[Rfam]
RNA sequence: CCAGUCAGUCUCCUGGCUGGAGUCCAGCUCUAAGCUGGUUCCAGGCUCUAGCCAGGACCUGACUACAA
Numbered sequence: 001c002c003a004g005u006c007a008g009u010c011u012c013c014u015g016g017c018u019g020g021a022g023u024c025c026a027g028c029u030c031u032a033a034g035c036u037g038g039u040u041c042c043a044g045g046c047u048c049u050a051g052c053c054a055g056g057a058c059c060u061g062a063c064u065a066c067a068a
Base pairs, nucleotide, nucleotide: 004063005062006061008059011056014054015053016052017051018050019049020048021047024038025037026036027035028034
RNA: mir-344 microRNA precursor family
Organism: Mus musculus